The family of this 147-nucleotide sequence from Virgibacillus indicus is "FMN riboswitch aptamer (RFN element)". A search with the family's covariance model found it, with a score of 116 bits. NCBI's taxonomy places the organism under Bacteria, Bacillati, Bacilli, Caryophanales, Virgibacillus.
RNA sequence: UUCCAUCUUCGGGGCAGGGUGAAAUUCCCGACCGACGGUAAGGAGCAUAUUUUGUUCUAAGUCCGUGACCCACAUUGCUUCUCGCAUGUGGCUGAUCUGGUGAAAAUCCGGAACCGACAGUUACAGUCUGGAUGGGAGAAGAUGUCG
Dot-bracket structure: ...(((((((......(((.......))).[[((((((......................[[))))...((..................))....(((((.......)))))]])).(((.....]]))).......)))))))...
Rfam links the family to the GO term FMN binding.